[Rfam]
RNA sequence: GCGGGUCUGGCCUACUAUUCCAUGGUGGGAAAUUGGGCCAAGGUCUUG
Numbered sequence: 001g002c003g004g005g006u007c008u009g010g011c012c013u014a015c016u017a018u019u020c021c022a023u024g025g026u027g028g029g030a031a032a033u034u035g036g037g038c039c040a041a042g043g044u045c046u047u048g
Stems, first nucleotide, its partner, number of pairs: 006043003010038005018031004
The record is a 48-nucleotide RNA sequence, which matches "Hepatitis C virus stem-loop SL1412 RNA" in Rfam. The family's consensus secondary structure was predicted with RNAfold.